[Rfam]
A member of the RNA family "c-di-GMP-I-GGC riboswitch aptamer" from Crassaminicella thermophila, 84 nucleotides long.
The source organism's lineage runs through Bacteria, Bacillati, Bacillota, Clostridia and Crassaminicella.
It scores 67 bits against the family's covariance model.
A reference for the family is Weinberg et al. (2017), "Bioinformatic analysis of riboswitch structures uncovers variant classes with altered ligand specificity", Proc Natl Acad Sci U S A.
Rfam links the family to the GO term cyclic-di-GMP binding.
The family has 40 seed sequences and 1,298 matches in Rfam 15.1.
The family's consensus secondary structure is taken from published work.

RNA sequence: UUCAAUAAAGGCAAACUUGUCGAAAGGCAAGGACGCAAAGCCAGGGGCCUAAGGGAGAUUUACUAUGGUAGCCGGUUGCUGAAA
Number, nucleotide and partner (000 for none) at each position: 001u084002u000003c081004a080005a000006u000007a000008a000009a000010g000011g036012c035013a000014a000015a000016c031017u030018u029019g028020u027021c026022g000023a000024a000025a000026g021027g020028c019029a018030a017031g016032g000033a000034c071035g012036c011037a000038a000039a077040g076041c075042c074043a000044g000045g073046g072047g069048c068049c067050u000051a000052a000053g000054g000055g000056a000057g000058a000059u000060u000061u000062a000063c000064u000065a000066u000067g049068g048069u047070a000071g034072c046073c045074g042075g041076u040077u039078g000079c000080u004081g003082a000083a000084a001